[Rfam]
RNA sequence: CCGAAUCACCCGCCCAACGGGGCGGGGAACCGGGGACCCAAGAUCCUCUGGGGUGAAUCGACGCACGUCGUAGGGCGACUCCUGGCCCGAACCCGUCAGCUAACCCGGUAGGCGCGCGAGGAGAGGAGAA
Numbered sequence: 001c002c003g004a005a006u007c008a009c010c011c012g013c014c015c016a017a018c019g020g021g022g023c024g025g026g027g028a029a030c031c032g033g034g035g036a037c038c039c040a041a042g043a044u045c046c047u048c049u050g051g052g053g054u055g056a057a058u059c060g061a062c063g064c065a066c067g068u069c070g071u072a073g074g075g076c077g078a079c080u081c082c083u084g085g086c087c088c089g090a091a092c093c094c095g096u097c098a099g100c101u102a103a104c105c106c107g108g109u110a111g112g113c114g115c116g117c118g119a120g121g122a123g124a125g126g127a128g129a130a
Stems, first nucleotide, its partner, number of pairs: 001112002006028002029109006039050002051094003059070004073088004
Record summary: c-di-AMP riboswitch aptamer (ydaO/yuaA leader): a 130-nucleotide RNA from Actinomadura rubrisoli. About the family: This family represents a conserved RNA structure found upstream of the ydaO and yuaA genes in Bacillus subtilis and related genes in other bacteria. Pairs were carried over by alignment from the consensus structure. The source organism's lineage runs through Bacteria, Bacillati, Streptosporangiales, Thermomonosporaceae and Actinomadura.